[Rfam]
RNA sequence: AGUGGUUACACGACGAACACAACUUGGAUGGAGGCGGGGGACCCACCGGUCCACCGAGCUACAAGGACCAGGAGCCGCUUGCGGCCCCUUGGGGUGAAGCCGUCGCCGUUUCGACGUCGCCGGCCGGGCAACCUCUCCAGCCCGAACCCGACAGCUGACCUCGUGGGCGCAUACGAGAGGACCU
Dot-bracket structure: ..........((.(...(.(..........).)((((((....((............................................))(((.....(((..................)))..((((..........))))...))).........)))))).).))...............
RNA: c-di-AMP riboswitch aptamer (ydaO/yuaA leader)
Organism: Mycobacterium dioxanotrophicus